[Rfam]
RNA sequence: CAGGUCAGUGCUUGGCACCUAGUAAGCACUCAGUCAGUACUUGUUGAGUGCUUGCUGUGUGCCAGUCAUUGUGCUAA
Dot-bracket structure: .((..(((.(.(((((((.(((((.(((((((((........))))))))).))))).))))))).).)))..))..
RNA: mir-1271 microRNA precursor family
Organism: Chrysochloris asiatica